[Rfam]
A member of the RNA family "MIR5565 microRNA precursor family" from Miscanthus lutarioriparius, 109 nucleotides long. Its family is annotated with RISC complex and miRNA-mediated post-transcriptional gene silencing in the Gene Ontology.
RNA sequence: GUAGUCGGAUUCGCAUCAAUCCACGUGUGUUGGAAUGGAUCGGAGUAAAAUUUGAACUAAAUUUCACCCCGAUCUAUCCCUACACAUGUGGAUCGAAGUGAAUUCAAAA
Numbered sequence: 001g002u003a004g005u006c007g008g009a010u011u012c013g014c015a016u017c018a019a020u021c022c023a024c025g026u027g028u029g030u031u032g033g034a035a036u037g038g039a040u041c042g043g044a045g046u047a048a049a050a051u052u053u054g055a056a057c058u059a060a061a062u063u064u065c066a067c068c069c070c071g072a073u074c075u076a077u078c079c080c081u082a083c084a085c086a087u088g089u090g091g092a093u094c095g096a097a098g099u100g101a102a103u104u105c106a107a108a109a
Stems, first nucleotide, its partner, number of pairs: 005107001007105008016096002019093012032080001035077009045067002
Dot-bracket structure: ....(.((((((((.((.((((((((((((.(..(((((((((.((...................)).)))))))))..).)))))))))))).)).)))))))).)..